Rfam assigns this 107-nucleotide sequence from Cellulomonas gilvus to the family "SAM (S-adenosyl methionine) riboswitch aptamer". The organism belongs to Cellulomonas gilvus, within Bacteria. Clan: SAM clan. The match comes from Rfam's covariance-model search (81 bits).
RNA sequence: GGUCAUGAGCGUCUCCGCCAAGCCCCGGCUGGGAGACCGGCAACCCUCCGUCCGUGGCGGGGUGCCCCGGGUGACGACCAGGCCGUCGUGCGCCGCGGGCGCCUACA
Numbered sequence: 001g002g003u004c005a006u007g008a009g010c011g012u013c014u015c016c017g018c019c020a021a022g023c024c025c026c027g028g029c030u031g032g033g034a035g036a037c038c039g040g041c042a043a044c045c046c047u048c049c050g051u052c053c054g055u056g057g058c059g060g061g062g063u064g065c066c067c068c069g070g071g072u073g074a075c076g077a078c079c080a081g082g083c084c085g086u087c088g089u090g091c092g093c094c095g096c097g098g099g100c101g102c103c104u105a106c107a
Stems, first nucleotide, its partner, number of pairs: 001079004009038001011037006021030002039066003044062003048057002082106001085103001087101003091097001